[Rfam]
RNA sequence: UGCGCUGGUUUUUGCCGCGGUGAUAUUCCAACGUCAUGAUUAUCACCGGGUGAAAAUACAGCACAGGCCCAAUCC
Numbered sequence: 001u002g003c004g005c006u007g008g009u010u011u012u013u014g015c016c017g018c019g020g021u022g023a024u025a026u027u028c029c030a031a032c033g034u035c036a037u038g039a040u041u042a043u044c045a046c047c048g049g050g051u052g053a054a055a056a057u058a059c060a061g062c063a064c065a066g067g068c069c070c071a072a073u074c075c
Base pairs, nucleotide, nucleotide: 001065002064004062005061006060007059009056010055011054012053013052014051015050016049018048020046021045022044023043024042025041
Rfam assigns this 75-nucleotide RNA sequence from Caenorhabditis brenneri to the family "mir-36 microRNA precursor family".
The base pairs follow the family's consensus structure, which was predicted with WAR.
The family is grouped with related families in Rfam's "mir-36 clan".